[Rfam]
RNA sequence: GGAUUUAUGAUGAGAUAUGUUUACUGAGCCUGAUGAAAAGAAAGCUCACUGUGAUUACUCUGAAGUCC
Numbered sequence: 001g002g003a004u005u006u007a008u009g010a011u012g013a014g015a016u017a018u019g020u021u022u023a024c025u026g027a028g029c030c031u032g033a034u035g036a037a038a039a040g041a042a043a044g045c046u047c048a049c050u051g052u053g054a055u056u057a058c059u060c061u062g063a064a065g066u067c068c
Stems, first nucleotide, its partner, number of pairs: 001068005012060003020054002025048005
RNA: Small Nucleolar RNA SNORD64